[Rfam]
RNA sequence: AGGAGGAACAGCAACAGUGGCAGUGGUCAGCUCUGGAGCCCUGGAGUCAGCUCCAGCAGGAACUCCGGAGCUCUCAGUCUGCAGGGGCCUGGAUGCUCUGGGGGCGG
Numbered sequence: 001a002g003g004a005g006g007a008a009c010a011g012c013a014a015c016a017g018u019g020g021c022a023g024u025g026g027u028c029a030g031c032u033c034u035g036g037a038g039c040c041c042u043g044g045a046g047u048c049a050g051c052u053c054c055a056g057c058a059g060g061a062a063c064u065c066c067g068g069a070g071c072u073c074u075c076a077g078u079c080u081g082c083a084g085g086g087g088c089c090u091g092g093a094u095g096c097u098c099u100g101g102g103g104g105c106g107g
Base pairs, nucleotide, nucleotide: 002099003098004097005096007094009091010090011089012087019079020078021077023075025074026073029072030071031070032069033068034067035066036065037064040060041059042058043057